[Rfam]
RNA sequence: GAUCAAGAGUCCCGGUGCGAAGCUCUGGCUGGCCGGGCGGCAACCCUCUCCCGUAGUGGGGUGCCCCAGAUGAGGAUCCGGCCGCGGUGGCCAUCCGCGGCAAGUACGGCGC
Numbered sequence: 001g002a003u004c005a006a007g008a009g010u011c012c013c014g015g016u017g018c019g020a021a022g023c024u025c026u027g028g029c030u031g032g033c034c035g036g037g038c039g040g041c042a043a044c045c046c047u048c049u050c051c052c053g054u055a056g057u058g059g060g061g062u063g064c065c066c067c068a069g070a071u072g073a074g075g076a077u078c079c080g081g082c083c084g085c086g087g088u089g090g091c092c093a094u095c096c097g098c099g100g101c102a103a104g105u106a107c108g109g110c111g112c
Stems, first nucleotide, its partner, number of pairs: 001078004009038001011037006021030002039065003044061003048056002081101007
A member of the RNA family "SAM (S-adenosyl methionine) riboswitch aptamer" from Sinomonas atrocyanea, 112 nucleotides long.
Taxonomically the source falls in Sinomonas (Bacteria, Bacillati, Actinomycetota, Micrococcales).
On this family, see Weinberg et al., RNA 2008: "The aptamer core of SAM-IV riboswitches mimics the ligand-binding site of SAM-I riboswitches".
The base pairs follow the family's consensus structure, which is taken from published work.
SAM-IV is a mRNA element that regulates gene expression via direct sensing of S-adenosylmethionine (SAM or AdoMet). SAM-IV riboswitches share conserved nucleotide positions with the previously described SAM-I riboswitches sequence analysis and molecular recognition experiments suggest that SAM-I and SAM-IV riboswitches share similar ligand binding sites, but have different scaffolds.